Small nucleolar RNA Z278: a 115-nucleotide RNA sequence from Pyrus ussuriensis x Pyrus communis. Rfam's curators write: snoZ278 is a C/D box small nucleolar RNA. Its methylation guide targets have not been reported. A search with the family's covariance model found it, with a score of 39 bits.
RNA sequence: GCCUGUGAUGAUUCAAUCCGCUUUUUUGAGGUGUAGUGGAGCUGAGACCUUGUUUACAAGGAGAACCCCUCGGCGAAGCUACAUUGCGUAUGACAUUAAUGGAUUUAACUGAGGU
Numbered sequence: 001g002c003c004u005g006u007g008a009u010g011a012u013u014c015a016a017u018c019c020g021c022u023u024u025u026u027u028g029a030g031g032u033g034u035a036g037u038g039g040a041g042c043u044g045a046g047a048c049c050u051u052g053u054u055u056a057c058a059a060g061g062a063g064a065a066c067c068c069c070u071c072g073g074c075g076a077a078g079c080u081a082c083a084u085u086g087c088g089u090a091u092g093a094c095a096u097u098a099a100u101g102g103a104u105u106u107a108a109c110u111g112a113g114g115u
Stems, first nucleotide, its partner, number of pairs: 001115003048061005